[Rfam]
RNA sequence: CAAGUUUGUAGGCCCUAACAGAUGCAUUUGUGGUGCAGCCCUGUUAGAUUCCAAUGAAUCUGAAAAUUCUGCU
Numbered sequence: 001c002a003a004g005u006u007u008g009u010a011g012g013c014c015c016u017a018a019c020a021g022a023u024g025c026a027u028u029u030g031u032g033g034u035g036c037a038g039c040c041c042u043g044u045u046a047g048a049u050u051c052c053a054a055u056g057a058a059u060c061u062g063a064a065a066a067u068u069c070u071g072c073u
Stems, first nucleotide, its partner, number of pairs: 011040003017073001019071004024036003045062007
Source information:
This 73-nucleotide sequence from Alligator mississippiensis belongs to the Rfam family "Mammalian CPEB3 ribozyme". NCBI's taxonomy places the organism under Eukaryota, Metazoa, Sarcopterygii, Amniota, Alligator. Pairs were carried over by alignment from the consensus structure, which is taken from published work.